A member of the RNA family "PyrR binding site" from Peribacillus psychrosaccharolyticus, 129 nucleotides long. The family's consensus secondary structure is taken from published work. A reference for the family is Bonner et al. (2001), "Molecular recognition of pyr mRNA by the Bacillus subtilis attenuation regulatory protein PyrR", Nucleic Acids Res. The family's RNA type in Rfam is cis-regulatory element.
RNA sequence: AGAACCUUUAACACAGUCCAGAGAGGCUGGGAAGGUACACGGAGUUAAUGAAUUCGAUGAGUGAAUUCAUUAUUAAGCACGACCCGCAGUAUCGAAUCCCUAUGCCUCCUGGCAGAGGGAUUUUUUUAU
Number, nucleotide and partner (000 for none) at each position: 001a000002g000003a000004a036005c035006c034007u033008u032009u031010a000011a000012c000013a000014c029015a028016g027017u026018c025019c000020a000021g000022a000023g000024a000025g018026g017027c016028u015029g014030g000031g009032a008033a007034g006035g005036u004037a000038c000039a000040c000041g000042g000043a000044g074045u000046u072047a071048a070049u069050g068051a067052a066053u065054u064055c063056g062057a000058u000059g000060a000061g000062u056063g055064a054065a053066u052067u051068c050069a049070u048071u047072a046073u000074u044075a000076a000077g000078c000079a000080c000081g000082a000083c000084c000085c000086g000087c000088a000089g000090u000091a000092u000093c000094g123095a122096a121097u120098c119099c118100c117101u116102a000103u114104g113105c112106c111107u000108c000109c000110u000111g106112g105113c104114a103115g000116a101117g100118g099119g098120a097121u096122u095123u094124u000125u000126u000127u000128a000129u000